[Rfam]
The family of this 115-nucleotide RNA sequence from Beta vulgaris is "U5 spliceosomal RNA". Rfam classes the family as a spliceosomal small nuclear RNA. The match comes from Rfam's covariance-model search (86 bits). The organism belongs to Beta vulgaris, within Eukaryota. The family has 180 seed sequences and 28,527 matches in Rfam 15.1.
RNA sequence: AGCCAUGCACUGAGCACAGAGCGAACUAUUCUUUCGCCUUUUACUAAAGAAUACCGUGUGCUCGUUGCAUUCAGUGGCAUACGUUUCUUUUUGGAGGGAGUUCCUAUAGGAGCUU
Number, nucleotide and partner (000 for none) at each position: 001a000002g000003c077004c076005a075006u074007g000008c067009a066010c000011u064012g063013a062014g061015c060016a059017c058018a057019g000020a000021g000022c000023g000024a000025a000026c000027u053028a052029u051030u050031c049032u048033u047034u046035c000036g000037c000038c000039u000040u000041u000042u000043a000044c000045u000046a034047a033048a032049g031050a030051a029052u028053a027054c000055c000056g000057u018058g017059u016060g015061c014062u013063c012064g011065u000066u009067g008068c000069a000070u000071u000072c000073a000074g006075u005076g004077g003078c000079a000080u000081a000082c000083g000084u000085u000086u000087c000088u000089u000090u000091u000092u000093g000094g000095a115096g000097g000098g000099a114100g113101u112102u111103c110104c109105u000106a000107u000108a000109g104110g103111a102112g101113c100114u099115u095
U5 RNA is a component of both types of known spliceosome.
The family's consensus secondary structure is taken from published work.